Notes: Rfam assigns this 86-nucleotide sequence from Sinobaca qinghaiensis to the family "c-di-GMP-I riboswitch aptamer". About the family: GEMM was predicted in a large-scale screen for bacterial structured RNA regulatory elements.
Nucleotides: 086
Stems, first nucleotide, its partner, number of pairs: 012037002017032001019030004040080004045076003048071003055065003
Number, partner (000 for none) and nucleotide at each position: 001000u002000c003000c004000a005000g006000a007000u008000a009000a010000a011000g012037g013036c014000a015000a016000g017032u018000u019030c020029a021028u022027u023000g024000a025000a026000a027022a028021a029020u030019g031000u032017g033000u034000a035000c036013g037012c038000a039000a040080a041079g042078u043077u044000a045076c046075a047074g048071g049070u050069c051000u052000a053000a054000g055065g056064u057063a058000c059000u060000a061000u062000a063057u064056g065055c066000u067000a068000a069050g070049a071048u072000g073000g074047c075046u076045g077043g078042g079041c080040u081000g082000c083000c084000u085000g086000g

NCBI's taxonomy places the organism under Bacteria, Bacillota, Caryophanales, Sporolactobacillaceae, Sinobaca.